[Rfam]
RNA sequence: UACCUGUAGUGGGUCUAAGGUUGGAAGGUGCAUCGAAAUCCGCGAUGUUUAUCCCUCUCCACGCUUUAGCGAGAGCCCGGUUCGAAUCCAGUGGUGCCCGUUCCACUCGUGCUGGUAACACACGAUGCUGGUCAGGCCUAAGCAAUGAGAUCUAUUGUUGAGGGAAGCAAUUCUGCAGACACGAUCUCACCAUUGGAUGGCGGCGCUGGAAUACUCUUGCUAGGGUUGGGAUGGGUGUUGCGGGCAGAUUUACCGACCGACAUCAAAUCUUCUU
Numbered sequence: 001u002a003c004c005u006g007u008a009g010u011g012g013g014u015c016u017a018a019g020g021u022u023g024g025a026a027g028g029u030g031c032a033u034c035g036a037a038a039u040c041c042g043c044g045a046u047g048u049u050u051a052u053c054c055c056u057c058u059c060c061a062c063g064c065u066u067u068a069g070c071g072a073g074a075g076c077c078c079g080g081u082u083c084g085a086a087u088c089c090a091g092u093g094g095u096g097c098c099c100g101u102u103c104c105a106c107u108c109g110u111g112c113u114g115g116u117a118a119c120a121c122a123c124g125a126u127g128c129u130g131g132u133c134a135g136g137c138c139u140a141a142g143c144a145a146u147g148a149g150a151u152c153u154a155u156u157g158u159u160g161a162g163g164g165a166a167g168c169a170a171u172u173c174u175g176c177a178g179a180c181a182c183g184a185u186c187u188c189a190c191c192a193u194u195g196g197a198u199g200g201c202g203g204c205g206c207u208g209g210a211a212u213a214c215u216c217u218u219g220c221u222a223g224g225g226u227u228g229g230g231a232u233g234g235g236u237g238u239u240g241c242g243g244g245c246a247g248a249u250u251u252a253c254c255g256a257c258c259g260a261c262a263u264c265a266a267a268u269c270u271u272c273u274u
Stems, first nucleotide, its partner, number of pairs: 002014003018270005024264002031259001033256003036251003040243004045238010065225001067222009077209005082203003086198009096137001098136002103131003107125005113120002138142001146189007156181004164173003
Rfam assigns this 274-nucleotide sequence from Glonium stellatum to the family "Fungal signal recognition particle RNA". Rfam 15.1 lists 748 matches to the family in 741 species. Pairs were carried over by alignment from the consensus structure, which is taken from published work. A search with the family's covariance model found it, with a score of 143 bits. Taxonomically the source falls in Glonium (Eukaryota, Dothideomycetes, Gloniales, Gloniaceae).